[Rfam]
RNA sequence: GGCUGGUCUGAAGGUAGUGAGUUACCUCAAUUGAUUGUUCACAGUUAUAGAUCAAACUUCUUGUUCUACUCUUUCCCCUCUUCUCACUACUGUACUUGACUAGUCUUUG
Numbered sequence: 001g002g003c004u005g006g007u008c009u010g011a012a013g014g015u016a017g018u019g020a021g022u023u024a025c026c027u028c029a030a031u032u033g034a035u036u037g038u039u040c041a042c043a044g045u046u047a048u049a050g051a052u053c054a055a056a057c058u059u060c061u062u063g064u065u066c067u068a069c070u071c072u073u074u075c076c077c078c079u080c081u082u083c084u085c086a087c088u089a090c091u092g093u094a095c096u097u098g099a100c101u102a103g104u105c106u107u108u109g
Base pairs, nucleotide, nucleotide: 001105002104003103004102005101006100007099008098010097011096014093015092016088017087018086019085020084021083043067044066
Rfam assigns this 109-nucleotide sequence from Pan troglodytes to the family "Y RNA". The family's RNA type in Rfam is non-coding RNA gene. Rfam's curators write: Y RNAs are components of the Ro ribonucleoprotein particle (Ro RNP), in association with Ro60 and La proteins. The Y RNAs and Ro60 and La proteins are well conserved, but the function of the Ro RNP is not known. The family's consensus secondary structure is taken from published work. It scores 68 bits against the family's covariance model.